[Rfam]
Background:
The record is a 93-nucleotide RNA sequence from Taxus chinensis, which matches "Small nucleolar RNA snoR31/Z110/Z27" in Rfam. By type it is a C/D-box small nucleolar RNA. This family contains several related snoRNAs including R31, Z27 and Z110. The organism belongs to Taxus, within Eukaryota.
RNA sequence: UUCAUCAAAUGAGGAAACAAAUCAUUAUCUUAGGACACCUUCUUACGCAGUCUUUUAAGCUGUGGAUGAGAGAUACUUCUAUCUGAUGAUGAA
Numbered sequence: 001u002u003c004a005u006c007a008a009a010u011g012a013g014g015a016a017a018c019a020a021a022u023c024a025u026u027a028u029c030u031u032a033g034g035a036c037a038c039c040u041u042c043u044u045a046c047g048c049a050g051u052c053u054u055u056u057a058a059g060c061u062g063u064g065g066a067u068g069a070g071a072g073a074u075a076c077u078u079c080u081a082u083c084u085g086a087u088g089a090u091g092a093a
Stems, first nucleotide, its partner, number of pairs: 001093007043049001
About this RNA: It scores 56 bits against the family's covariance model.